[Rfam]
Shown here is an 84-nucleotide RNA from Effrenium voratum, a member of the family "chrB-a RNA".
The family has 163 seed sequences and 347 matches in Rfam 15.1.
The organism belongs to Effrenium, within Eukaryota.
The match comes from Rfam's covariance-model search (68 bits).

RNA sequence: CCGAUGGGGCGAGCGAACACCCCGUGAGGCGUAAGCUGAAGUUUCGCGUCCUUGAAACCCAAUUGAACGGGAGGACGCGCCAUG
Numbered sequence: 001c002c003g004a005u006g007g008g009g010c011g012a013g014c015g016a017a018c019a020c021c022c023c024g025u026g027a028g029g030c031g032u033a034a035g036c037u038g039a040a041g042u043u044u045c046g047c048g049u050c051c052u053u054g055a056a057a058c059c060c061a062a063u064u065g066a067a068c069g070g071g072a073g074g075a076c077g078c079g080c081c082a083u084g
Stems, first nucleotide, its partner, number of pairs: 005024005046078008